Source information: A member of the RNA family "mir-34 microRNA precursor family" from Ictalurus punctatus, 60 nucleotides long. The literature on the family includes a 2003 paper in Science by Lim et al., "Vertebrate microRNA genes". Its Rfam clan is "mir-34 clan". The sequence is in the family's curated seed alignment. Human mir-34a was discovered computationally and later experimentally verified. The mature sequence is excised from the 5' arm of the hairpin. Pairs were carried over by alignment from the consensus structure, which was predicted with RNAalifold.

[Rfam]
RNA sequence: AGGCAGUGUUGUUAGCUGAUUGUUUCAUAUGAACUAUAAUCACUAACCAUACUGCCAACA
Numbered sequence: 001a002g003g004c005a006g007u008g009u010u011g012u013u014a015g016c017u018g019a020u021u022g023u024u025u026c027a028u029a030u031g032a033a034c035u036a037u038a039a040u041c042a043c044u045a046a047c048c049a050u051a052c053u054g055c056c057a058a059c060a
Base pairs, nucleotide, nucleotide: 002056003055005053006052007051008050009049011047012046013045014044015043017042018041019040020039021038022037023036